[Rfam]
RNA sequence: CACCUACCAAACCCUAUCUCCACCUCCACGUGGUGAUCGCCGGGAGUUUUUACUUUAUAAAAAACUGCAGAGGGAGAAGG
Dot-bracket structure: ............(((.(.((((((.......)))..........((((((((.....)).)))))).....))).).)))